Shown here is a 66-nucleotide sequence from Phyllostomus discolor, a member of the family "Small nucleolar RNA SNORD102". For this family Rfam cites "Identification of 13 novel human modification guide RNAs" (Vitali et al., Nucleic Acids Res, 2003). Pairs were carried over by alignment from the consensus structure, which was predicted with PFOLD.
RNA sequence: UGCUUAAUGACUCUUUCUGAUUGCCUAAAGCAAUGUGAAAAAUGCAUUUCACUGGCUCUGAAAGCU
Numbered sequence: 001u002g003c004u005u006a007a008u009g010a011c012u013c014u015u016u017c018u019g020a021u022u023g024c025c026u027a028a029a030g031c032a033a034u035g036u037g038a039a040a041a042a043u044g045c046a047u048u049u050c051a052c053u054g055g056c057u058c059u060g061a062a063a064g065c066u
Stems, first nucleotide, its partner, number of pairs: 002065004